RNA sequence: CUGCGCGCAGGAGAUGGCAUACCUCCUCGAACCGCCCGCAAUGGGCUGAUGAUGCCUACUGUGCC
Numbered sequence: 001c002u003g004c005g006c007g008c009a010g011g012a013g014a015u016g017g018c019a020u021a022c023c024u025c026c027u028c029g030a031a032c033c034g035c036c037c038g039c040a041a042u043g044g045g046c047u048g049a050u051g052a053u054g055c056c057u058a059c060u061g062u063g064c065c
Base pairs, nucleotide, nucleotide: 010026011025012024013023016056017055018054019053020052034046035045036044037043

Fluoride riboswitch aptamer (crcB RNA motif): a 65-nucleotide RNA from Solimonas marina.
The match comes from Rfam's covariance-model search (55 bits).